[Rfam]
RNA sequence: UGUCUCCUCCACCUCCUCUAUUGGUGGAUUCAGCCCGAAGUCGCAAGACUUCGGGCUUUUUUCU
Number, nucleotide and partner (000 for none) at each position: 001u000002g000003u000004c000005u000006c000007c000008u028009c027010c026011a025012c024013c023014u000015c000016c000017u000018c000019u000020a000021u000022u000023g013024g012025u011026g010027g009028a008029u000030u000031c000032a057033g056034c055035c054036c053037g052038a051039a050040g000041u000042c000043g000044c000045a000046a000047g000048a000049c000050u039051u038052c037053g036054g035055g034056c033057u032058u000059u000060u000061u000062u000063c000064u000
RNA: Betaproteobacteria toxic small RNA
Organism: Burkholderiales bacterium PBB6